[Rfam]
RNA sequence: UUUGUUGAUGGUCAUCUAUUCAUCAUUGGGCAUAUUUUUUUGCAACCAUUAAUAUGCUGUGGUAAUUAGAUGAACAUCAACAAACA
Numbered sequence: 001u002u003u004g005u006u007g008a009u010g011g012u013c014a015u016c017u018a019u020u021c022a023u024c025a026u027u028g029g030g031c032a033u034a035u036u037u038u039u040u041u042g043c044a045a046c047c048a049u050u051a052a053u054a055u056g057c058u059g060u061g062g063u064a065a066u067u068a069g070a071u072g073a074a075c076a077u078c079a080a081c082a083a084a085c086a
Stems, first nucleotide, its partner, number of pairs: 001084010012073007020065001022063002030060003036054001038051001041048002

Shown here is an 86-nucleotide sequence from Capsicum annuum, a member of the family "MIR827_2 microRNA precursor family". NCBI's taxonomy places the organism under Eukaryota, Spermatophyta, asterids, Solanoideae, Capsicum. A search with the family's covariance model found it, with a score of 67 bits.